[Rfam]
RNA: Group II catalytic intron D1-D4-6
Organism: Roseateles saccharophilus
RNA sequence: CAAGUCCGCUGCAAUGAAGGAAUAGCGAUCCACAUUGGCCCCGAGUCAUGCGCGGCACACCGCGAGGUGUGGCGUGAAGCGUUGACAGGGGUACGCACAGGCCAGCCAUUGAGCCACGAAAGGUACUUAUCCCGGGUGUCGACGCUGUACCACUGGCGGAAGACAACACGGGCGGGGGCGCCAACGCGAGCCCCCGCGCGACCCGGCGCGGUCGCAGAACC
Numbered sequence: 001c002a003a004g005u006c007c008g009c010u011g012c013a014a015u016g017a018a019g020g021a022a023u024a025g026c027g028a029u030c031c032a033c034a035u036u037g038g039c040c041c042c043g044a045g046u047c048a049u050g051c052g053c054g055g056c057a058c059a060c061c062g063c064g065a066g067g068u069g070u071g072g073c074g075u076g077a078a079g080c081g082u083u084g085a086c087a088g089g090g091g092u093a094c095g096c097a098c099a100g101g102c103c104a105g106c107c108a109u110u111g112a113g114c115c116a117c118g119a120a121a122g123g124u125a126c127u128u129a130u131c132c133c134g135g136g137u138g139u140c141g142a143c144g145c146u147g148u149a150c151c152a153c154u155g156g157c158g159g160a161a162g163a164c165a166a167c168a169c170g171g172g173c174g175g176g177g178g179c180g181c182c183a184a185c186g187c188g189a190g191c192c193c194c195c196g197c198g199c200g201a202c203c204c205g206g207c208g209c210g211g212u213c214g215c216a217g218a219a220c221c
Stems, first nucleotide, its partner, number of pairs: 012037005019031003023189001025187002039091004045086004049081002051076004056071006111213001113212003117208002132206006138164003143158004169200002172197008